[Rfam]
RNA sequence: ACCUUUCAGGUUGCAGCCUAAUCUGAUUUAGGCUGACGGCUGGUGACUUUUUAGUCACCAGCCU
Numbered sequence: 001a002c003c004u005u006u007c008a009g010g011u012u013g014c015a016g017c018c019u020a021a022u023c024u025g026a027u028u029u030a031g032g033c034u035g036a037c038g039g040c041u042g043g044u045g046a047c048u049u050u051u052u053a054g055u056c057a058c059c060a061g062c063c064u
Base pairs, nucleotide, nucleotide: 014035015034016033017032018031022026038063039062040061041060042059043058044057045056046055047054
Shown here is a 64-nucleotide RNA from Erwinia billingiae, a member of the family "Pseudomonas sRNA P26". A reference for the family is Livny et al. (2006), "Identification of 17 Pseudomonas aeruginosa sRNAs and prediction of sRNA-encoding genes in 10 diverse pathogens using the bioinformatic tool sRNAPredict2", Nucleic Acids Res. Lineage of the source: Bacteria > Pseudomonadati > Pseudomonadota > Gammaproteobacteria > Erwinia. The family's consensus secondary structure was predicted with RNAalifold. About the family: This small RNA (sRNA) was computationally identified in the genome of the opportunistic pathogen Pseudomonas aeruginosa and its expression verified by northern blot analysis. P26 is conserved across many Gammaproteobacteria species and appears to be consistently located between the DNA directed RNA polymerase (beta subunit) and 50S ribosomal protein L7/L12 genes.